ATPC RNA motif: an 89-nucleotide RNA from Synechococcus sp. LTW-R. The match comes from Rfam's covariance-model search (48 bits). Taxonomically the source falls in Synechococcus (Bacteria, Bacillati, Cyanobacteriota, Cyanophyceae).
[Rfam]
RNA sequence: AUCGGGGUCCCUCGGUCUGGCAAACUCUCUGCGCGCAGGUCCGGUUCAAUCCGGGCCCAUCUCGGUCUCAUCCAGGUGUCCCAGGCGCA
Numbered sequence: 001a002u003c004g005g006g007g008u009c010c011c012u013c014g015g016u017c018u019g020g021c022a023a024a025c026u027c028u029c030u031g032c033g034c035g036c037a038g039g040u041c042c043g044g045u046u047c048a049a050u051c052c053g054g055g056c057c058c059a060u061c062u063c064g065g066u067c068u069c070a071u072c073c074a075g076g077u078g079u080c081c082c083a084g085g086c087g088c089a
Stems, first nucleotide, its partner, number of pairs: 002015005033088004038057007058078005064072001